RNA sequence: GUGGGAGGAAGCUCACUGUAGAGCUCACUUGCUGAGUGUCCGAUCACUCAAUAUCUCUGCUCGGGGAAGGUCUGAGACAAAAGCCGAUCACUGCCCUUGCAGGGCAUCAUCCUAUCUGGGUGAGUGAGGAAACAGAAAUCCUGCUCCAAGUGUCUCUAUAAGCAGAGGAAACGCGAUUGUCAACAAUGAAACUGGCACCCGUGUAGAUGCAGUGACACUGGGAUUGGAAAAGCCUCACGGCUGGCAAUUCUGAGUUCAAUGUGUGAGGUGAGGCACAUGAGCCUCACAACCUAAUUCAGACUACUCUCCUUCCAC
Dot-bracket structure: ((((..(((..(((((....((((.........(((((......))))).........)))).........[[[[[.....((((......(((((.....)))))((((((.....))))))((((((...............(((.........................................................................))).........))))))))))....................)))))(((((((......))))))).......]]]]].......)))..))))
Numbered sequence: 001g002u003g004g005g006a007g008g009a010a011g012c013u014c015a016c017u018g019u020a021g022a023g024c025u026c027a028c029u030u031g032c033u034g035a036g037u038g039u040c041c042g043a044u045c046a047c048u049c050a051a052u053a054u055c056u057c058u059g060c061u062c063g064g065g066g067a068a069g070g071u072c073u074g075a076g077a078c079a080a081a082a083g084c085c086g087a088u089c090a091c092u093g094c095c096c097u098u099g100c101a102g103g104g105c106a107u108c109a110u111c112c113u114a115u116c117u118g119g120g121u122g123a124g125u126g127a128g129g130a131a132a133c134a135g136a137a138a139u140c141c142u143g144c145u146c147c148a149a150g151u152g153u154c155u156c157u158a159u160a161a162g163c164a165g166a167g168g169a170a171a172c173g174c175g176a177u178u179g180u181c182a183a184c185a186a187u188g189a190a191a192c193u194g195g196c197a198c199c200c201g202u203g204u205a206g207a208u209g210c211a212g213u214g215a216c217a218c219u220g221g222g223a224u225u226g227g228a229a230a231a232g233c234c235u236c237a238c239g240g241c242u243g244g245c246a247a248u249u250c251u252g253a254g255u256u257c258a259a260u261g262u263g264u265g266a267g268g269u270g271a272g273g274c275a276c277a278u279g280a281g282c283c284u285c286a287c288a289a290c291c292u293a294a295u296u297c298a299g300a301c302u303a304c305u306c307u308c309c310u311u312c313c314a315c
Stems, first nucleotide, its partner, number of pairs: 001315004007309003012267005021062004034049005072299005082242004092106005107123006124238006145223003268287007